[Rfam]
RNA sequence: CUGCAUGUUUAUCCAAGAGUUGUAGCUCCACGCAGUAGCUGCAGGUCUCCAAUAACAUGCCAGAGCAGCUGGAAGGUCUUUGACUGCUGGGCUUCUUCUGCCCAUGGCUGUCACUCGCCCCUCCGAUACAU
Numbered sequence: 001c002u003g004c005a006u007g008u009u010u011a012u013c014c015a016a017g018a019g020u021u022g023u024a025g026c027u028c029c030a031c032g033c034a035g036u037a038g039c040u041g042c043a044g045g046u047c048u049c050c051a052a053u054a055a056c057a058u059g060c061c062a063g064a065g066c067a068g069c070u071g072g073a074a075g076g077u078c079u080u081u082g083a084c085u086g087c088u089g090g091g092c093u094u095c096u097u098c099u100g101c102c103c104a105u106g107g108c109u110g111u112c113a114c115u116c117g118c119c120c121c122u123c124c125g126a127u128a129c130a131u
Base pairs, nucleotide, nucleotide: 013044018040019039020038021037022036023035071124072123073122075120076119086111087110088104089103090102091101
Dot-bracket structure: ............(....((((((...........))))))...)..........................(((.((.........((((((.........)))).....)).......)).))).......
Rfam assigns this 131-nucleotide RNA from Dasyornis broadbenti to the family "Small nucleolar RNA SNORA44". Lineage of the source: Eukaryota > Sarcopterygii > Amniota > Sauria > Dasyornis. Rfam's curators write: ACA44 is a member of the H/ACA class of snoRNA that guide the sites of modification of uridines to pseudouridines. Rfam links the family to the GO terms nucleolus and RNA processing. The family's RNA type in Rfam is H/ACA-box small nucleolar RNA.